RNA sequence: UCAAAUUAGAGUUUUCUGGAUACUUAGAAGUUAAUAUAGAAGAAACCCUUUCUUUGUUAGUAACUAUUAAGUAUCCAGAAAACUCUAAAUUGAA
Numbered sequence: 001u002c003a004a005a006u007u008a009g010a011g012u013u014u015u016c017u018g019g020a021u022a023c024u025u026a027g028a029a030g031u032u033a034a035u036a037u038a039g040a041a042g043a044a045a046c047c048c049u050u051u052c053u054u055u056g057u058u059a060g061u062a063a064c065u066a067u068u069a070a071g072u073a074u075c076c077a078g079a080a081a082a083c084u085c086u087a088a089a090u091u092g093a094a
Stems, first nucleotide, its partner, number of pairs: 006088021029065005035059002040054005

About this RNA: This 94-nucleotide RNA from Arabidopsis lyrata belongs to the Rfam family "MIR781 microRNA precursor family". The base pairs follow the family's consensus structure, which was predicted with RNAalifold. Its family is annotated with RISC complex and miRNA-mediated post-transcriptional gene silencing in the Gene Ontology. The source organism's lineage runs through Eukaryota, Euphyllophyta, Gunneridae, Pentapetalae and Arabidopsis lyrata.